The record is a 169-nucleotide RNA sequence from Clostridium sp. CAG:7, which matches "Clostridiales-1 RNA" in Rfam. The family has 194 seed sequences and 1,172 matches in Rfam 15.1. NCBI's taxonomy places the organism under Bacteria, Bacillati, Bacillota, Clostridia, Clostridium. The family's consensus secondary structure is taken from published work.
[Rfam]
RNA sequence: UGAUACCAGUGUCGAAAGGUAAAAAUCCGACGCAAGCCUGCUUGCAGGAGGAUUUUUUAUCUUGGGACACGCAAAAACAUGAGUAAGUAGCCAUUUUUGCAAAAAAUGAGCGGAUUACUAAUGGUUUUGAAGAUUGCGAGAGCACAAAGUGCGUAGCAAUCUGGUAUCA
Dot-bracket structure: (((((((..((((..(((((((((((((..((((((....))))).)..))).))))))))))..))))...((((.(((..((((...(((((((.......))))).))...))))..))).))))..(((((((....((((...))))...))))))))))))))